Rfam assigns this 115-nucleotide RNA from Trifolium medium to the family "MIR2593 microRNA precursor family". Gene Ontology terms of the family: miRNA-mediated post-transcriptional gene silencing and RISC complex. NCBI's taxonomy places the organism under Eukaryota, Gunneridae, Fabaceae, Hologalegina, Trifolium.
RNA sequence: UUAUAAGAAACAGUUGACUUUUUAGAUUCAUUGAAUAAUUGAUGUAUCUGAUCUAUAUUAUACACCAGAUACAUCAGUUACUUAAUGAAUCUAAAAAGUUAGUUGUUUCUUAUAA
Number, nucleotide and partner (000 for none) at each position: 001u000002u114003a113004u112005a111006a110007g109008a000009a107010a106011c105012a104013g103014u000015u101016g100017a099018c098019u097020u096021u095022u094023u093024a092025g091026a000027u089028u088029c087030a086031u085032u084033g083034a082035a000036u080037a079038a078039u077040u076041g075042a074043u073044g072045u000046a000047u000048c000049u067050g066051a000052u064053c000054u000055a000056u000057a000058u000059u000060a000061u000062a000063c000064a052065c000066c050067a049068g000069a000070u000071a000072c044073a043074u042075c041076a040077g039078u038079u037080a036081c000082u034083u033084a032085a031086u030087g029088a028089a027090u000091c025092u024093a023094a022095a021096a020097a019098g018099u017100u016101a015102g000103u013104u012105g011106u010107u009108u000109c007110u006111u005112a004113u003114a002115a000